[Rfam]
RNA sequence: ACAACAUUCGGACAGUUGGUAUACCGAGCAAUAUCACCCGCUCUGUGGAAGAUUUUUCCUUUGUCGU
Numbered sequence: 001a002c003a004a005c006a007u008u009c010g011g012a013c014a015g016u017u018g019g020u021a022u023a024c025c026g027a028g029c030a031a032u033a034u035c036a037c038c039c040g041c042u043c044u045g046u047g048g049a050a051g052a053u054u055u056u057u058c059c060u061u062u063g064u065c066g067u
Stems, first nucleotide, its partner, number of pairs: 004064003010058003015053003020049001022047003026043004

A member of the RNA family "mir-2774 microRNA precursor family" from Bombyx mori, 67 nucleotides long. The literature on the family includes a 2010 paper in BMC Genomics by Liu et al., "MicroRNAs of Bombyx mori identified by Solexa sequencing". The organism belongs to Bombyx, within Eukaryota.